[Rfam]
RNA sequence: AUUUUAUAACGAAGGGUGGAGAGAUCAGGCUCUGUGAAACCCUGGCAACCACUUUCCCGAUGGCUCGGGAAAAAAGGUGCCAAAGCCUGUCCCGCUGUGCGGGAGACUAUAAAAC
Numbered sequence: 001a002u003u004u005u006a007u008a009a010c011g012a013a014g015g016g017u018g019g020a021g022a023g024a025u026c027a028g029g030c031u032c033u034g035u036g037a038a039a040c041c042c043u044g045g046c047a048a049c050c051a052c053u054u055u056c057c058c059g060a061u062g063g064c065u066c067g068g069g070a071a072a073a074a075a076g077g078u079g080c081c082a083a084a085g086c087c088u089g090u091c092c093c094g095c096u097g098u099g100c101g102g103g104a105g106a107c108u109a110u111a112a113a114a115c
Base pairs, nucleotide, nucleotide: 002114003113004112005111006110007109008108013043014042015041016040017039021032022031023030026089027088028087029086044081045080046079047078049077050076053071054070055069056068057067085107090104091103092102093101094100095099
Record summary
Shown here is a 115-nucleotide RNA sequence from Neolewinella marina, a member of the family "SAM riboswitch aptamer (S box leader)". The organism belongs to Neolewinella, within Bacteria. Rfam 15.1 lists 9,625 matches to the family in 4,158 species. A search with the family's covariance model found it, with a score of 77 bits.